[Rfam]
RNA: Nematode snoRNA ceN39
Organism: Puccinia coronata
RNA sequence: GAGGGGUUCUGGCCCCUCCAGAAUGAUUCUGGAGGGGCCCAUAACCCCUCCAGAAUGAUUCUGGAGGGGUUCUGGCCCCUCCAGAAUGAUUCUGGAGGGGUUCUGGCCCCUCCAGCAUGAUU
Numbered sequence: 001g002a003g004g005g006g007u008u009c010u011g012g013c014c015c016c017u018c019c020a021g022a023a024u025g026a027u028u029c030u031g032g033a034g035g036g037g038c039c040c041a042u043a044a045c046c047c048c049u050c051c052a053g054a055a056u057g058a059u060u061c062u063g064g065a066g067g068g069g070u071u072c073u074g075g076c077c078c079c080u081c082c083a084g085a086a087u088g089a090u091u092c093u094g095g096a097g098g099g100g101u102u103c104u105g106g107c108c109c110c111u112c113c114a115g116c117a118u119g120a121u122u
Base pairs, nucleotide, nucleotide: 003051004050005049006048011039012038013037014036015035016034017033018032019031020030021029022028023027062114063113064112065111066110067109068108069107072105075101076100078098079097080096081095082094083093084092085091